RNA: Hepatitis delta virus ribozyme
Organism: Diatraea saccharalis
RNA sequence: UUGGGGUGGUUGGGAUCUACCUCCUAGCGGUCCACCCUGGGCAACGGCUCCACUUUUGUGGAGACGGCUAAAGAUCCCAA
Numbered sequence: 001u002u003g004g005g006g007u008g009g010u011u012g013g014g015a016u017c018u019a020c021c022u023c024c025u026a027g028c029g030g031u032c033c034a035c036c037c038u039g040g041g042c043a044a045c046g047g048c049u050c051c052a053c054u055u056u057u058g059u060g061g062a063g064a065c066g067g068c069u070a071a072a073g074a075u076c077c078c079a080a
Stems, first nucleotide, its partner, number of pairs: 003038007012078007019031003023040002045066002048063005